[Rfam]
RNA sequence: CCUUCGCUGAUGAGUAACCUUUUGACUUUCGUUCUACUGAGCUUGCUGAAGCAACGUUCAUUACCUGAGGAGG
Numbered sequence: 001c002c003u004u005c006g007c008u009g010a011u012g013a014g015u016a017a018c019c020u021u022u023u024g025a026c027u028u029u030c031g032u033u034c035u036a037c038u039g040a041g042c043u044u045g046c047u048g049a050a051g052c053a054a055c056g057u058u059c060a061u062u063a064c065c066u067g068a069g070g071a072g073g
Base pairs, nucleotide, nucleotide: 001073002072003071005069
Annotation:
A member of the RNA family "Small nucleolar RNA SNORD59" from Gallus gallus, 73 nucleotides long. It is annotated as a C/D-box small nucleolar RNA. The organism belongs to Gallus, within Eukaryota. The literature on the family includes a 2002 paper in Mol Cell Biol by Galardi et al., "Purified box C/D snoRNPs are able to reproduce site-specific 2'-O-methylation of target RNA in vitro". Gene Ontology terms of the family: RNA processing and nucleolus.